[Rfam]
RNA sequence: AAGAUUUUUUUCAAUAUAGAACACUCAUGUCAAUAAAAUCAUUUGAAACCCUU
Dot-bracket structure: ..........(..((((.........))))..)....................
Numbered sequence: 001a002a003g004a005u006u007u008u009u010u011u012c013a014a015u016a017u018a019g020a021a022c023a024c025u026c027a028u029g030u031c032a033a034u035a036a037a038a039u040c041a042u043u044u045g046a047a048a049c050c051c052u053u
Stems, first nucleotide, its partner, number of pairs: 011033001014030004
This 53-nucleotide RNA from Punica granatum belongs to the Rfam family "Plastid-atpF group II-D1 intron".
The organism belongs to Punica, within Eukaryota.
A reference for the family is Richter et al. (2023), "Retrograde signaling in plants: A critical review focusing on the GUN pathway and beyond", Plant Commun.
It scores 62 bits against the family's covariance model.
The base pairs follow the family's consensus structure, which was predicted with LocARNA.